RNA sequence: CCCUCCAGUACCUACUGAACUGAAACACAGUUUUUUUCAUGCAACUGGCUCAGUUCAGCAGGAACCGGAG
Numbered sequence: 001c002c003c004u005c006c007a008g009u010a011c012c013u014a015c016u017g018a019a020c021u022g023a024a025a026c027a028c029a030g031u032u033u034u035u036u037u038c039a040u041g042c043a044a045c046u047g048g049c050u051c052a053g054u055u056c057a058g059c060a061g062g063a064a065c066c067g068g069a070g
Stems, first nucleotide, its partner, number of pairs: 003070004008065002011062003015058009028047004
The family of this 70-nucleotide RNA from Erinaceus europaeus is "mir-24 microRNA precursor family". Gene Ontology terms of the family: RISC complex and miRNA-mediated post-transcriptional gene silencing. On this family, see Lagos-Quintana et al., Science 2001: "Identification of novel genes coding for small expressed RNAs". The source organism's lineage runs through Eukaryota, Gnathostomata, Teleostomi, Sarcopterygii and Erinaceus. About the family: This family represents the microRNA (miRNA) mir-24 family. miRNAs are transcribed as ~70nt precursors (modelled here) and subsequently processed by the Dicer enzyme to give a ~22nt product. In this case the mature sequence comes from the 3' arm of the precursor. The extents of the hairpin precursors are not generally known and are estimated based on hairpin prediction. The products are thought to have regulatory roles through complementarity to mRNA. The involvement of Dicer in miRNA processing suggests a relationship with the phenomenon of RNA interference. miRNAs are numbered based on the sequence of the mature RNA. miR-24 has been identified in human and mouse.